RNA sequence: GCCUGGGCGCAGUGGUUUAUCGAUCUCUUCCCUGCCUUGUGCUGCUCCGAUCGAUGCCCGUGCUGAUUCUUGAUAAUAUACAACGCAGGAAUCGAUCGAUAAGCCUCUGCAUCCAGAU
Numbered sequence: 001g002c003c004u005g006g007g008c009g010c011a012g013u014g015g016u017u018u019a020u021c022g023a024u025c026u027c028u029u030c031c032c033u034g035c036c037u038u039g040u041g042c043u044g045c046u047c048c049g050a051u052c053g054a055u056g057c058c059c060g061u062g063c064u065g066a067u068u069c070u071u072g073a074u075a076a077u078a079u080a081c082a083a084c085g086c087a088g089g090a091a092u093c094g095a096u097c098g099a100u101a102a103g104c105c106u107c108u109g110c111a112u113c114c115a116g117a118u
Base pairs, nucleotide, nucleotide: 003116004115005114006113007112009110010109011108012107014105015104016103017102018101019100020099021098022097023096024095025094028091029090030089031088034086035085037083038082